[Rfam]
RNA sequence: GAUACGGUCGCGAAGCUACUUCGUAGUGAACACACGGGUUGAGCCUAUACACUACGGGGAAAGUCUCCGUGCGUUUAAUGCCUAGAGGGCACAGGGGGAAUCUCCAGCGGAUGCUGCGAAUGUUAUUUUACUCGACAUUUGCUGCUUCACUAUUUGCCGUUUGGCCAGACCAUUAAACCGAUAGUCAAUGUAGCUAGCGCCUGGCGCUGACUCAAUGGAGCUUAUCUGCGUACCGUAU
Numbered sequence: 001g002a003u004a005c006g007g008u009c010g011c012g013a014a015g016c017u018a019c020u021u022c023g024u025a026g027u028g029a030a031c032a033c034a035c036g037g038g039u040u041g042a043g044c045c046u047a048u049a050c051a052c053u054a055c056g057g058g059g060a061a062a063g064u065c066u067c068c069g070u071g072c073g074u075u076u077a078a079u080g081c082c083u084a085g086a087g088g089g090c091a092c093a094g095g096g097g098g099a100a101u102c103u104c105c106a107g108c109g110g111a112u113g114c115u116g117c118g119a120a121u122g123u124u125a126u127u128u129u130a131c132u133c134g135a136c137a138u139u140u141g142c143u144g145c146u147u148c149a150c151u152a153u154u155u156g157c158c159g160u161u162u163g164g165c166c167a168g169a170c171c172a173u174u175a176a177a178c179c180g181a182u183a184g185u186c187a188a189u190g191u192a193g194c195u196a197g198c199g200c201c202u203g204g205c206g207c208u209g210a211c212u213c214a215a216u217g218g219a220g221c222u223u224a225u226c227u228g229c230g231u232a233c234c235g236u237a238u
Base pairs, nucleotide, nucleotide: 002238003237004236005235006234007233008232009230010229011228014195015194016193017192018191019190022057023055024054025053026052027051028050037045038044039043061223062222063221065220066219067218068217079091080090081089082088092107094105095104096103097102109166110165116157117156118155119154120153121152122150123149125147133141134140135139197207198206199205200204
RNA: RNase MRP